[Rfam]
RNA sequence: AAACACGCUUCACAAUGUGCGACAAAGAAACAUUGUUUAUGCAAAGGCACUUCGCAAUGUGUGCUCAAACAUUGCUUAUUCAAACACGCUUCACAAUGUGCGACAAAGAAACAUUGU
Numbered sequence: 001a002a003a004c005a006c007g008c009u010u011c012a013c014a015a016u017g018u019g020c021g022a023c024a025a026a027g028a029a030a031c032a033u034u035g036u037u038u039a040u041g042c043a044a045a046g047g048c049a050c051u052u053c054g055c056a057a058u059g060u061g062u063g064c065u066c067a068a069a070c071a072u073u074g075c076u077u078a079u080u081c082a083a084a085c086a087c088g089c090u091u092c093a094c095a096a097u098g099u100g101c102g103a104c105a106a107a108g109a110a111a112c113a114u115u116g117u
Base pairs, nucleotide, nucleotide: 006021007020008019012036013035014034015033016032017031018030048063049062050061054075055074056073057072058071059070060069087102088101089100093117094116095115096114097113098112099111
RNA: Fusobacteriales-1 RNA